The family of this 104-nucleotide RNA sequence from Hordeum vulgare is "MIR6201 microRNA precursor family".
It is one of the family's seed sequences.
The organism belongs to Hordeum, within Eukaryota.
RNA sequence: AACUGAGUUUGACCCUGAGGCACUCAUACCGCUACCUAGUUUGGAAUGUUUACCGUAUGAAUGGCUCAGUUAGCGGUAUGAGUGUCUCAGGGUCAAAUUUUGAU
Numbered sequence: 001a002a003c004u005g006a007g008u009u010u011g012a013c014c015c016u017g018a019g020g021c022a023c024u025c026a027u028a029c030c031g032c033u034a035c036c037u038a039g040u041u042u043g044g045a046a047u048g049u050u051u052a053c054c055g056u057a058u059g060a061a062u063g064g065c066u067c068a069g070u071u072a073g074c075g076g077u078a079u080g081a082g083u084g085u086c087u088c089a090g091g092g093u094c095a096a097a098u099u100u101u102g103a104u
Base pairs, nucleotide, nucleotide: 005100006099007098008097009096010095011094012093013092014091015090016089017088018087019086020085021084022083023082024081025080026079027078028077029076030075031074032073033072034071036069046058047057048056049055